Shown here is a 102-nucleotide RNA from Alkaliphilus pronyensis, a member of the family "Purine riboswitch aptamer". About the family: Riboswitches are metabolite binding domains within certain messenger RNAs that serve as precision sensors for their corresponding targets. Allosteric rearrangement of mRNA structure is mediated by ligand binding, and this results in modulation of gene expression. A class of riboswitches that selectively recognises guanine and becomes saturated at concentrations as low as 5 nM. In Bacillus subtilis, this mRNA motif is located on at least five separate transcriptional units that together encode 17 genes that are mostly involved in purine transport and purine nucleotide biosynthesis. The match comes from Rfam's covariance-model search (92 bits).
RNA sequence: AUAUUAAAUUUAUUUUUUUCUCGUAUAAUAAUGGAAAUAUGGUCCAUAAGUUUCUACCAAGCCACCGUAAAUGGCUUGACUACGGGUAGCAGAAAUAGAAAA
Numbered sequence: 001a002u003a004u005u006a007a008a009u010u011u012a013u014u015u016u017u018u019u020c021u022c023g024u025a026u027a028a029u030a031a032u033g034g035a036a037a038u039a040u041g042g043u044c045c046a047u048a049a050g051u052u053u054c055u056a057c058c059a060a061g062c063c064a065c066c067g068u069a070a071a072u073g074g075c076u077u078g079a080c081u082a083c084g085g086g087u088a089g090c091a092g093a094a095a096u097a098g099a100a101a102a
Base pairs, nucleotide, nucleotide: 018088020086021085022084023083024082025081029049031047032046033045034044035043058078059077060076061075062074063073064072